[Rfam]
The family of this 80-nucleotide RNA sequence from Alligator sinensis is "Mammalian CPEB3 ribozyme".
The source organism's lineage runs through Eukaryota, Opisthokonta, Craniata, Dipnotetrapodomorpha and Alligator.
RNA sequence: AGAGGUUACAAGUUUAAGGCCAUAGCAGAAGCACUCAGAGUGUGACCAUGUCAGAUUUCAACAAAUCUACAAAUUCUGCU
Numbered sequence: 001a002g003a004g005g006u007u008a009c010a011a012g013u014u015u016a017a018g019g020c021c022a023u024a025g026c027a028g029a030a031g032c033a034c035u036c037a038g039a040g041u042g043u044g045a046c047c048a049u050g051u052c053a054g055a056u057u058u059c060a061a062c063a064a065a066u067c068u069a070c071a072a073a074u075u076c077u078g079c080u
Base pairs, nucleotide, nucleotide: 013048018047019046021044024080025079026078027077028076029075030074031043032042033041053068054067055066056065057064058063
Record summary:
Rfam's curators write: The mammalian CPEB3 ribozyme is a self cleaving RNA located in the second intron of the CPEB3 gene which belongs to a family of genes regulating messenger RNA polyadenylation. This ribozyme is highly conserved and found only in mammals. The base pairs follow the family's consensus structure, which is taken from published work. A search with the family's covariance model found it, with a score of 40 bits.